[Rfam]
RNA sequence: GCCGGGAUAGCUCAGUCGGCAGAGCGAUUCACUCGUAAUGAAUAGGUCCGGGGUUCGAUUCCCCGUCCCGGCU
Numbered sequence: 001g002c003c004g005g006g007a008u009a010g011c012u013c014a015g016u017c018g019g020c021a022g023a024g025c026g027a028u029u030c031a032c033u034c035g036u037a038a039u040g041a042a043u044a045g046g047u048c049c050g051g052g053g054u055u056c057g058a059u060u061c062c063c064c065g066u067c068c069c070g071g072c073u
Stems, first nucleotide, its partner, number of pairs: 001072007010025004027043005049065005
RNA: tRNA